[Rfam]
RNA sequence: GUCGGGAGGGCGACUAAUACAAUACCCUUCGGGGAAAUAAGUCCGCGGUUCGCUAGACCGUUUUGAGCCUCCCGGCACCAUAAU
Numbered sequence: 001g002u003c004g005g006g007a008g009g010g011c012g013a014c015u016a017a018u019a020c021a022a023u024a025c026c027c028u029u030c031g032g033g034g035a036a037a038u039a040a041g042u043c044c045g046c047g048g049u050u051c052g053c054u055a056g057a058c059c060g061u062u063u064u065g066a067g068c069c070u071c072c073c074g075g076c077a078c079c080a081u082a083a084u
Stems, first nucleotide, its partner, number of pairs: 001076009012043003015039002025034003045061005

The family of this 84-nucleotide RNA from Sodalis ligni is "sRNA-Xcc1".
The match comes from Rfam's covariance-model search (70 bits).
For this family Rfam cites "sRNA-Xcc1, an integron-encoded transposon- and plasmid-transferred trans-acting sRNA, is under the positive control of the key virulence regulators HrpG and HrpX of Xanthomonas campestris pathovar campestris" (Chen et al., RNA Biol, 2011).
The source organism's lineage runs through Bacteria, Pseudomonadati, Gammaproteobacteria, Enterobacterales and Sodalis.
By type it is a small RNA.